[Rfam]
RNA: TPP riboswitch aptamer (THI element)
Organism: Rhizobium sp. Root149
RNA sequence: CGCAUUCACCAGGGGUGUCCCGCAAGGGGCUGAGAUUCCGCUGGGCUUGGCUUUUAGAGGCCAAGCAGCGCGGUGACCCGUUGAACCUGAUCCAGUUCAUACUGGCGUAGGGACGGUGCACGCGCGAUUUC
Numbered sequence: 001c002g003c004a005u006u007c008a009c010c011a012g013g014g015g016u017g018u019c020c021c022g023c024a025a026g027g028g029g030c031u032g033a034g035a036u037u038c039c040g041c042u043g044g045g046c047u048u049g050g051c052u053u054u055u056a057g058a059g060g061c062c063a064a065g066c067a068g069c070g071c072g073g074u075g076a077c078c079c080g081u082u083g084a085a086c087c088u089g090a091u092c093c094a095g096u097u098c099a100u101a102c103u104g105g106c107g108u109a110g111g112g113a114c115g116g117u118g119c120a121c122g123c124g125c126g127a128u129u130u131c
Base pairs, nucleotide, nucleotide: 007118008117009116010115012079013078014077017030018029019028020027021026038073039072040071041070086111087110088109089108092105093104094103095102